The record is a 114-nucleotide sequence from Pseudolycoriella hygida, which matches "Potassium channel RNA editing signal" in Rfam. Pairs were carried over by alignment from the consensus structure, which is taken from published work. From the family's description: This family represents a group of sequences related to the human potassium channel Kv1.1 hairpin element which directs the efficient modification of an adenosine to inosine by an adenosine deaminase acting on RNA (ADAR). The ADAR modification causes an isoleucine/valine recoding event which lies in the ion-conducting pore of the potassium channel. It is thought that this editing event targets the process of fast inactivation and allows a more rapid recovery from inactivation at negative potentials. For this family Rfam cites "Control of human potassium channel inactivation by editing of a small mRNA hairpin" (Bhalla et al., Nat Struct Mol Biol, 2004). It scores 85 bits against the family's covariance model.
[Rfam]
RNA sequence: GUCGGCUACGGUGAUAUGGCACCGAAAACUUAUGUUGGAAUGUUUGUUGGUGCUUUGUGUGCAUUGGCAGGUGUAUUAACGAUAGCACUACCAGUACCAGUCAUUGUUAGCAAC
Numbered sequence: 001g002u003c004g005g006c007u008a009c010g011g012u013g014a015u016a017u018g019g020c021a022c023c024g025a026a027a028a029c030u031u032a033u034g035u036u037g038g039a040a041u042g043u044u045u046g047u048u049g050g051u052g053c054u055u056u057g058u059g060u061g062c063a064u065u066g067g068c069a070g071g072u073g074u075a076u077u078a079a080c081g082a083u084a085g086c087a088c089u090a091c092c093a094g095u096a097c098c099a100g101u102c103a104u105u106g107u108u109a110g111c112a113a114c
Stems, first nucleotide, its partner, number of pairs: 001114002004111001008107004013102003018097001021095002037077002040074001050062002